[Rfam]
Description: TPP riboswitch aptamer (THI element): a 107-nucleotide sequence from Enterovirga rhinocerotis. Rfam's curators write: Vitamin B(1) in its active form thiamin pyrophosphate (TPP) is an essential coenzyme that is synthesised by coupling of pyrimidine and thiazole moieties in bacteria. Taxonomically the source falls in Enterovirga (Bacteria, Pseudomonadati, Alphaproteobacteria, Hyphomicrobiales).
RNA sequence: AGCCGUUCCGAGGGGGGCCGCACGAGCGGCUGAGAUACGGCUGACCGGCCGUGACCCUUGAACCUGAUCCGGGUCAUGCCGGCGUAGGGACGCGAACGGGCCGAAUU
Numbered sequence: 001a002g003c004c005g006u007u008c009c010g011a012g013g014g015g016g017g018c019c020g021c022a023c024g025a026g027c028g029g030c031u032g033a034g035a036u037a038c039g040g041c042u043g044a045c046c047g048g049c050c051g052u053g054a055c056c057c058u059u060g061a062a063c064c065u066g067a068u069c070c071g072g073g074u075c076a077u078g079c080c081g082g083c084g085u086a087g088g089g090a091c092g093c094g095a096a097c098g099g100g101c102c103g104a105a106u107u
Base pairs, nucleotide, nucleotide: 006095007094009092010091011058012057013056014055017030018029019028020027021026037052038051039050040049041048063088064087065086066085069082070081071080072079